[Rfam]
RNA sequence: CGUACGAAAGGGCAAAUUCACUGAAAGGUGAAGACGCAAAACUUUAGGGGCUAAUGUUGAAAAACGAUGCCAGCCAGUUACCGAA
Numbered sequence: 001c002g003u004a005c006g007a008a009a010g011g012g013c014a015a016a017u018u019c020a021c022u023g024a025a026a027g028g029u030g031a032a033g034a035c036g037c038a039a040a041a042c043u044u045u046a047g048g049g050g051c052u053a054a055u056g057u058u059g060a061a062a063a064a065c066g067a068u069g070c071c072a073g074c075c076a077g078u079u080a081c082c083g084a085a
Base pairs, nucleotide, nucleotide: 012037013036017032018031019030020029021028022027040079041078042077043076047075048074049071050070051069056065057064058063
The record is an 85-nucleotide RNA sequence from Ornithinibacillus halophilus, which matches "c-di-GMP-I riboswitch aptamer" in Rfam. The source organism's lineage runs through Bacteria, Bacillota, Bacilli, Bacillaceae and Ornithinibacillus.